[Rfam]
The family of this 43-nucleotide RNA is "Prion pseudoknot".
About the family: This family represents a predicted pseudoknot structure found in prion protein mRNA. It has been suggested that the family has a possible effect in prion protein translation.
The family has 148 seed sequences and 421 matches in Rfam 15.1.
RNA sequence: CCAUGGUGGUGGCUGGGGACAGCCACAUGGUGGCGGAGGCUGG
Numbered sequence: 001c002c003a004u005g006g007u008g009g010u011g012g013c014u015g016g017g018g019a020c021a022g023c024c025a026c027a028u029g030g031u032g033g034c035g036g037a038g039g040c041u042g043g
Base pairs, nucleotide, nucleotide: 001030002029003028004027005026

About this RNA: It is annotated as a cis-regulatory element. The family's consensus secondary structure is taken from published work.